[Rfam]
RNA sequence: ACGCGGGUCACUUGGGGAGUAGCCAGUCGGUCGGCAGACCGAGCCUCCGCGUCAACAUACUCGGCCUGCAGGUCGUGGCGCGAAGGGAACGGGACACCGUUCGGGCGAGACCAAUGACGCCGCAUUCCUGCUCGGGCCGGGCACGGAAUGAUGGUGUCAUUGCGUCAGAUUUGCCCGGCCUGGAGACUGUCUCUC
Numbered sequence: 001a002c003g004c005g006g007g008u009c010a011c012u013u014g015g016g017g018a019g020u021a022g023c024c025a026g027u028c029g030g031u032c033g034g035c036a037g038a039c040c041g042a043g044c045c046u047c048c049g050c051g052u053c054a055a056c057a058u059a060c061u062c063g064g065c066c067u068g069c070a071g072g073u074c075g076u077g078g079c080g081c082g083a084a085g086g087g088a089a090c091g092g093g094a095c096a097c098c099g100u101u102c103g104g105g106c107g108a109g110a111c112c113a114a115u116g117a118c119g120c121c122g123c124a125u126u127c128c129u130g131c132u133c134g135g136g137c138c139g140g141g142c143a144c145g146g147a148a149u150g151a152u153g154g155u156g157u158c159a160u161u162g163c164g165u166c167a168g169a170u171u172u173g174c175c176c177g178g179c180c181u182g183g184a185g186a187c188u189g190u191c192u193c194u195c
Base pairs, nucleotide, nucleotide: 027042028041029040045085046084048082049081050080051079052078053077054076062075063074064073065072066071086194087193088192089190090189091188092187